Group II catalytic intron D1-D4-3: a 166-nucleotide RNA sequence from Paenibacillus sp. MY03. Rfam's curators write: Group II introns are found in rRNA, tRNA and mRNA of organelles in fungi, plants and protists, and also in mRNA in bacteria. It scores 59 bits against the family's covariance model.
[Rfam]
RNA sequence: GCAGUCCGUGAGGAUGCGUACGGAGGAUGUGAAGGCAAACCCCGGAACAGGCGGCACAACCAUGUUGGCUGGCAAGAUCGGACGACCCUGCCAACAAAGGGGAUGUCCAAUACCACCAUUGGUCUUGCAAGUUAGGAGGACUGGAUUCGGGGGAAAGUCGAAUGAC
Numbered sequence: 001g002c003a004g005u006c007c008g009u010g011a012g013g014a015u016g017c018g019u020a021c022g023g024a025g026g027a028u029g030u031g032a033a034g035g036c037a038a039a040c041c042c043c044g045g046a047a048c049a050g051g052c053g054g055c056a057c058a059a060c061c062a063u064g065u066u067g068g069c070u071g072g073c074a075a076g077a078u079c080g081g082a083c084g085a086c087c088c089u090g091c092c093a094a095c096a097a098a099g100g101g102g103a104u105g106u107c108c109a110a111u112a113c114c115a116c117c118a119u120u121g122g123u124c125u126u127g128c129a130a131g132u133u134a135g136g137a138g139g140a141c142u143g144g145a146u147u148c149g150g151g152g153g154a155a156a157g158u159c160g161a162a163u164g165a166c
Stems, first nucleotide, its partner, number of pairs: 001017003005014003029166002032163001035158002040152006048143003060139002063136001068132003072128007080108004086101004